Rfam assigns this 497-nucleotide sequence from Phascolarctos cinereus to the family "Vertebrate telomerase RNA".
The literature on the family includes a 2000 paper in Cell by Chen et al., "Secondary structure of vertebrate telomerase RNA".
Taxonomically the source falls in Phascolarctos (Eukaryota, Metazoa, Eumetazoa, Dipnotetrapodomorpha).
From the family's description: Telomerase is a ribonucleoprotein reverse transcriptase that synthesises telomeric DNA. Telomerase RNAs differ greatly in sequence and structure between vertebrates, ciliates and yeasts, but they share a 5' pseudoknot structure close to the template sequence. Vertebrate telomerase RNAs have a 3' H/ACA snoRNA-like domain.
It scores 131 bits against the family's covariance model.
Rfam links the family to the GO terms telomerase catalytic core complex, telomere maintenance via telomerase and telomerase activity.
Rfam 15.1 lists 523 matches to the family in 477 species.

RNA sequence: UGCGGCGGCGGGUCCUCCCGUCCUUGUCCUUCUAACCCUAAUUGCGCUCUGUUGCAGCGGCUCCUCGUGGGUCAUCGCUCGCUGUUUUUGUGGCUGGCUUUCUGCGGGCAGGAGGAGCCGGGAGCGGAGCCGGAGGAAGGAGCAAAAAACGUCAGCCGAGGCCGGGCGGCCCCGCUCGUGGCCCGUCCGCCCCGUCCGGGCCCGGCCCCGGCCCGAACCCCCUGGAGAUGCCUCCCGCGGGGCCUGCGCUCGCUCGCGGAACCCCGGCUGCCCACGAACAGAGGCGGCGACCGUCUCGGGGCCCCUGCGUGCGGGGGCGCCCACUGCGGCCGCCAAGAGUUCGGCUCUGUCAGCCUCGGGGUGCGCGUGGGACCGUGGGCGAGCCCCAAGGCCGGGUGGGGGGCGGGGGCACAGGGAGAGUAACCGUGAGCGGCGCCCAGACUUUGGGGCGCUCCCUCUAGCUAUGGGAGCUGCCCCUGGGCACGGCUCAGACACCC
Numbered sequence: 001u002g003c004g005g006c007g008g009c010g011g012g013u014c015c016u017c018c019c020g021u022c023c024u025u026g027u028c029c030u031u032c033u034a035a036c037c038c039u040a041a042u043u044g045c046g047c048u049c050u051g052u053u054g055c056a057g058c059g060g061c062u063c064c065u066c067g068u069g070g071g072u073c074a075u076c077g078c079u080c081g082c083u084g085u086u087u088u089u090g091u092g093g094c095u096g097g098c099u100u101u102c103u104g105c106g107g108g109c110a111g112g113a114g115g116a117g118c119c120g121g122g123a124g125c126g127g128a129g130c131c132g133g134a135g136g137a138a139g140g141a142g143c144a145a146a147a148a149a150c151g152u153c154a155g156c157c158g159a160g161g162c163c164g165g166g167c168g169g170c171c172c173c174g175c176u177c178g179u180g181g182c183c184c185g186u187c188c189g190c191c192c193c194g195u196c197c198g199g200g201c202c203c204g205g206c207c208c209c210g211g212c213c214c215g216a217a218c219c220c221c222c223u224g225g226a227g228a229u230g231c232c233u234c235c236c237g238c239g240g241g242g243c244c245u246g247c248g249c250u251c252g253c254u255c256g257c258g259g260a261a262c263c264c265c266g267g268c269u270g271c272c273c274a275c276g277a278a279c280a281g282a283g284g285c286g287g288c289g290a291c292c293g294u295c296u297c298g299g300g301g302c303c304c305c306u307g308c309g310u311g312c313g314g315g316g317g318c319g320c321c322c323a324c325u326g327c328g329g330c331c332g333c334c335a336a337g338a339g340u341u342c343g344g345c346u347c348u349g350u351c352a353g354c355c356u357c358g359g360g361g362u363g364c365g366c367g368u369g370g371g372a373c374c375g376u377g378g379g380c381g382a383g384c385c386c387c388a389a390g391g392c393c394g395g396g397u398g399g400g401g402g403g404c405g406g407g408g409g410c411a412c413a414g415g416g417a418g419a420g421u422a423a424c425c426g427u428g429a430g431c432g433g434c435g436c437c438c439a440g441a442c443u444u445u446g447g448g449g450c451g452c453u454c455c456c457u458c459u460a461g462c463u464a465u466g467g468g469a470g471c472u473g474c475c476c477c478u479g480g481g482c483a484c485g486g487c488u489c490a491g492a493c494a495c496c497c
Stems, first nucleotide, its partner, number of pairs: 005179003008175005014169002017166004022161002062116005077109006084102001093156006099149003182415002185412002188409001248384008262371003267366002286334004291329004298322003336348004428489004433484001435482004447476005453469004